[Rfam]
RNA: mir-3689 microRNA precursor family
RNA sequence: GGGAGGUGUGAUCCCGUGCUCCCUGGGAGGUGUGAUCCCGUGCUCCCUGUGAGGUCUGAUCCUGUGCUUCCU
Numbered sequence: 001g002g003g004a005g006g007u008g009u010g011a012u013c014c015c016g017u018g019c020u021c022c023c024u025g026g027g028a029g030g031u032g033u034g035a036u037c038c039c040g041u042g043c044u045c046c047c048u049g050u051g052a053g054g055u056c057u058g059a060u061c062c063u064g065u066g067c068u069u070c071c072u
Stems, first nucleotide, its partner, number of pairs: 001071005015058002018055001020053001022051001024049004029044001031042004